[Rfam]
RNA sequence: CACGUCAGCGCGCUUUGCUGACGUGGCAACAAAUCGCGUCCACGAAAGCACAAUUUGUGUCCAAGUCAGCAAAGCGCGCUGAUGUG
Numbered sequence: 001c002a003c004g005u006c007a008g009c010g011c012g013c014u015u016u017g018c019u020g021a022c023g024u025g026g027c028a029a030c031a032a033a034u035c036g037c038g039u040c041c042a043c044g045a046a047a048g049c050a051c052a053a054u055u056u057g058u059g060u061c062c063a064a065g066u067c068a069g070c071a072a073a074g075c076g077c078g079c080u081g082a083u084g085u086g
Stems, first nucleotide, its partner, number of pairs: 001086021024063003029058006036051001038049001
Dot-bracket structure: (((((((((((((((((((((..(((..((((((.(.(..........).).))))))..)))..)))))))))))))))))))))

The family of this 86-nucleotide RNA sequence from Gossypium harknessii is "MIR7486 microRNA precursor family". The source organism's lineage runs through Eukaryota, Tracheophyta, Magnoliopsida, eudicotyledons and Gossypium. It scores 70 bits against the family's covariance model.